A member of the RNA family "int-alpA RNA" from Lachnospiraceae bacterium A2, 71 nucleotides long. Rfam's curators write: Acidobacteria (1 example), Planctomycetes (1 example), Proteobacteria. The source organism's lineage runs through Bacteria, Bacillota, Clostridia, Lachnospirales and Lachnospiraceae. It scores 49 bits against the family's covariance model.
[Rfam]
RNA sequence: CAACGGGAUAGCCCGACGGGGCGAAAAGCAAAACCGUGAUUGCCUGUCCGUUGUUUCAACUAAUAUCACGG
Numbered sequence: 001c002a003a004c005g006g007g008a009u010a011g012c013c014c015g016a017c018g019g020g021g022c023g024a025a026a027a028g029c030a031a032a033a034c035c036g037u038g039a040u041u042g043c044c045u046g047u048c049c050g051u052u053g054u055u056u057c058a059a060c061u062a063a064u065a066u067c068a069c070g071g
Stems, first nucleotide, its partner, number of pairs: 001053007011022004028043004034071006